[Rfam]
RNA sequence: GGAUGCUUUGAUUGUCCAAACGCAAUUCUUGUUUCAUUGUACAAGGGUUGCCUCUGGACAUCACCGCUACC
Numbered sequence: 001g002g003a004u005g006c007u008u009u010g011a012u013u014g015u016c017c018a019a020a021c022g023c024a025a026u027u028c029u030u031g032u033u034u035c036a037u038u039g040u041a042c043a044a045g046g047g048u049u050g051c052c053u054c055u056g057g058a059c060a061u062c063a064c065c066g067c068u069a070c071c
Base pairs, nucleotide, nucleotide: 002070005067006066009063010062011061012060014059015058016057017056018055022051023050024049025048026047027046028045029044030043031042
RNA: mir-219 microRNA precursor family